RNA sequence: CGCCAAGUCGGUGGCUCCGGAAGACGCCGGGGCCUGGUGCACAAAGGGA
Number, nucleotide and partner (000 for none) at each position: 001c000002g000003c000004c000005a000006a000007g000008u000009c000010g000011g000012u000013g034014g033015c032016u031017c030018c029019g028020g027021a000022a000023g000024a000025c000026g000027c020028c019029g018030g017031g016032g015033c014034c013035u000036g000037g000038u000039g000040c000041a000042c000043a000044a000045a000046g000047g000048g000049a000
Description
A member of the RNA family "raiA-hairpin RNA", 49 nucleotides long. The family's RNA type in Rfam is small RNA. A search with the family's covariance model found it, with a score of 55 bits. Pairs were carried over by alignment from the consensus structure, which is taken from published work.